[Rfam]
RNA sequence: AAAUACGAAUACCUCCGAGUUGUCUUAUCUAAACUUGCAAGAGCAUGAUUUGAUGACCGCAGGGGUAGUGGGAAACUGUUACGCCUCCCGUUGGUAAAGGAGUGUUAUUGUAAUUUCCA
Numbered sequence: 001a002a003a004u005a006c007g008a009a010u011a012c013c014u015c016c017g018a019g020u021u022g023u024c025u026u027a028u029c030u031a032a033a034c035u036u037g038c039a040a041g042a043g044c045a046u047g048a049u050u051u052g053a054u055g056a057c058c059g060c061a062g063g064g065g066u067a068g069u070g071g072g073a074a075a076c077u078g079u080u081a082c083g084c085c086u087c088c089c090g091u092u093g094g095u096a097a098a099g100g101a102g103u104g105u106u107a108u109u110g111u112a113a114u115u116u117c118c119a
Base pairs, nucleotide, nucleotide: 004112006110011105012104013102014101015100016099019057020056021055022054023053024052027049028048029047034043035042036041062086063085064084065082066081067080068079069078070077071076088094